A member of the RNA family "U1 spliceosomal RNA" from Saimiri boliviensis, 163 nucleotides long.
The family's consensus secondary structure is taken from published work.
The literature on the family includes a 1997 paper in Nucleic Acids Res by Zwieb, "The uRNA database".
The family's RNA type in Rfam is spliceosomal small nuclear RNA.

RNA sequence: AUAAAUACCUGGUGGGGAGAUACCAUGAUCACGAAGGUGGUUUUCCCAGGGUGAGGCUUAUUCAUUGCACUCCAGAUGUGCUGACCCCUGCAAUUUCCCCAAAUAUGGGAAACUCAGCUGCAUAAUUUGUGGUAGUGGGGGACUGCAUUCUCGCUUUCCUCUU
Numbered sequence: 001a002u003a004a005a006u007a008c009c010u011g012g013u014g015g016g017g018a019g020a021u022a023c024c025a026u027g028a029u030c031a032c033g034a035a036g037g038u039g040g041u042u043u044u045c046c047c048a049g050g051g052u053g054a055g056g057c058u059u060a061u062u063c064a065u066u067g068c069a070c071u072c073c074a075g076a077u078g079u080g081c082u083g084a085c086c087c088c089u090g091c092a093a094u095u096u097c098c099c100c101a102a103a104u105a106u107g108g109g110a111a112a113c114u115c116a117g118c119u120g121c122a123u124a125a126u127u128u129g130u131g132g133u134a135g136u137g138g139g140g141g142a143c144u145g146c147a148u149u150c151u152c153g154c155u156u157u158c159c160u161c162u163u
Stems, first nucleotide, its partner, number of pairs: 012121002014118001015047006022041005048089004053085001055082003059078004093114001094112003098108002137162006145154002